A member of the RNA family "DUF3800-IX RNA", 71 nucleotides long. Actinobacteria, Firmicutes (1 example), Nitrospirae, Proteobacteria, Verrucomicrobia (1 example). Rfam's curators put it in the seed alignment. By type it is a small RNA.
RNA sequence: CCCCUGGCGAAGAGUCGCCGAUUGUGGCGGCCUGCUCAGAGCACUGAAUCUGGGCUAGCCAGGGGGGUUUU
Numbered sequence: 001c002c003c004c005u006g007g008c009g010a011a012g013a014g015u016c017g018c019c020g021a022u023u024g025u026g027g028c029g030g031c032c033u034g035c036u037c038a039g040a041g042c043a044c045u046g047a048a049u050c051u052g053g054g055c056u057a058g059c060c061a062g063g064g065g066g067g068u069u070u071u
Base pairs, nucleotide, nucleotide: 001065002064003063004062005061006060007059008058014031015030016029017028018027019026034055035054036053037052038051039050040049